A member of the RNA family "A. fumigatus sRNA Afu_309" from Pyrenochaeta sp. MPI-SDFR-AT-0127, 271 nucleotides long. A reference for the family is Jochl et al. (2008), "Small ncRNA transcriptome analysis from Aspergillus fumigatus suggests a novel mechanism for regulation of protein synthesis", Nucleic Acids Res. Lineage of the source: Eukaryota > Dikarya > dothideomyceta > Cucurbitariaceae > Pyrenochaeta. The match comes from Rfam's covariance-model search (108 bits).
[Rfam]
RNA sequence: CUCUCACCACCAACCUGUGCCAGAAUUCCCGUCCGCCUUUCGGGGUGUGUUUGGUUGAAAUCUGGCAGUUCGUCCGUCCCAUGGAGCCAUCUCUCUUUCAUAGAUGGUUUCGGACGACAGGUUGAAGAGUGAGUCGGCGCGUAACAGAAGCCUGAGUUCACCGCAAGGUUCGAGCUCGGUGGACGGGGCGUUGCCAGGCGGACUGAUUCCUGUUCCCUUUUGCUAGGCCGUCGGCCACUGAUGCUUGGGACAAACCCAGUCGGCUACAUAC
Number, nucleotide and partner (000 for none) at each position: 001c000002u000003c000004u000005c000006a000007c000008c000009a000010c000011c124012a123013a122014c121015c120016u119017g118018u117019g066020c065021c064022a063023g062024a000025a000026u059027u058028c057029c054030c053031g052032u000033c049034c047035g046036c045037c044038u043039u000040u000041c000042g000043g038044g037045g036046u035047g034048u000049g033050u000051u000052u031053g030054g029055u000056u000057g028058a027059a026060a000061u000062c023063u022064g021065g020066c019067a000068g000069u000070u000071c000072g000073u000074c000075c116076g115077u114078c113079c112080c000081a000082u000083g111084g110085a000086g108087c107088c106089a000090u000091c000092u000093c000094u000095c000096u000097u000098u000099c000100a000101u000102a000103g000104a000105u000106g088107g087108u086109u000110u084111c083112g079113g078114a077115c076116g075117a018118c017119a016120g015121g014122u013123u012124g011125a000126a000127g000128a000129g000130u000131g000132a000133g000134u000135c000136g195137g194138c193139g000140c000141g000142u000143a000144a000145c000146a000147g000148a000149a000150g180151c179152c178153u000154g177155a176156g175157u174158u173159c172160a000161c168162c167163g000164c000165a000166a000167g162168g161169u000170u000171c000172g159173a158174g157175c156176u155177c154178g152179g151180u150181g000182g000183a000184c000185g000186g000187g000188g000189c000190g000191u000192u000193g138194c137195c136196a000197g000198g000199c000200g000201g261202a260203c259204u258205g257206a000207u000208u000209c000210c000211u000212g000213u000214u250215c249216c248217c247218u000219u000220u000221u000222g244223c243224u000225a000226g236227g235228c234229c233230g000231u000232c000233g229234g228235c227236c226237a000238c000239u000240g000241a000242u000243g223244c222245u000246u000247g217248g216249g215250a214251c000252a000253a000254a000255c000256c000257c205258a204259g203260u202261c201262g000263g000264c000265u000266a000267c000268a000269u000270a000271c000